A member of the RNA family "Small nucleolar RNA SNORA23" from Cyclopterus lumpus, 181 nucleotides long.
Rfam links the family to the GO terms RNA processing and nucleolus.
About the family: The members of this family belong to the H/ACA class of snoRNAs which are thought to guide the sites of modification of uridines to pseudouridines. This family includes human snoRNA ACA23 (SNORA23) and mouse snoMBI-1. ACA23 is predicted to guide the pseudouridylation of residue U3737 and U4331 of 28S rRNA.
It is annotated as an H/ACA-box small nucleolar RNA.
Taxonomically the source falls in Cyclopterus (Eukaryota, Eumetazoa, Euteleostomi, Euteleosteomorpha).

RNA sequence: GGUGGACGGUGUGCACAGUGGAAGUCUGUGUUAUGUGCUGUUGCCUGACUGCGUUUUGCAGGCUGGGCAGCAGUGCUCACUCCACACCUGCAGCCAUAGAAUAACAGGAGAUCAUAGUACUGGUCCGUGACGUCGUUAUUGACAUCUCACCAUUGGCCAGCCUCCAAAUUCUCCAACAUGC
Numbered sequence: 001g002g003u004g005g006a007c008g009g010u011g012u013g014c015a016c017a018g019u020g021g022a023a024g025u026c027u028g029u030g031u032u033a034u035g036u037g038c039u040g041u042u043g044c045c046u047g048a049c050u051g052c053g054u055u056u057u058g059c060a061g062g063c064u065g066g067g068c069a070g071c072a073g074u075g076c077u078c079a080c081u082c083c084a085c086a087c088c089u090g091c092a093g094c095c096a097u098a099g100a101a102u103a104a105c106a107g108g109a110g111a112u113c114a115u116a117g118u119a120c121u122g123g124u125c126c127g128u129g130a131c132g133u134c135g136u137u138a139u140u141g142a143c144a145u146c147u148c149a150c151c152a153u154u155g156g157c158c159a160g161c162c163u164c165c166a167a168a169u170u171c172u173c174c175a176a177c178a179u180g181c
Stems, first nucleotide, its partner, number of pairs: 013091003030080002035077001036075006043068002045065001047063001050060003107174005120160006127151001129146002132143003